Rfam assigns this 57-nucleotide RNA from Nyssa sinensis to the family "Plastid-ccsA-ndhD-1 3UTR RNA". Lineage of the source: Eukaryota > Magnoliopsida > Gunneridae > Cornales > Nyssa. The family's RNA type in Rfam is cis-regulatory element. From the family's description: Plastid-ccsA-ndhD-1 is a non-coding RNA (ncRNA) recognised in plastids. It was found in the three prime untranslated region (3UTR) of ccsA and ndhD genes, its 3UTR location suggests a role in transcript maturation.
[Rfam]
RNA sequence: AUGUUUGUGAGAACCAUGUGAAUCACUACACUACUUGAUUCAAAUGGUUCUUCACAA
Numbered sequence: 001a002u003g004u005u006u007g008u009g010a011g012a013a014c015c016a017u018g019u020g021a022a023u024c025a026c027u028a029c030a031c032u033a034c035u036u037g038a039u040u041c042a043a044a045u046g047g048u049u050c051u052u053c054a055c056a057a
Base pairs, nucleotide, nucleotide: 007055008054009053010051011050012049013048014047015046016045017044019042020041021040022039023038024037025036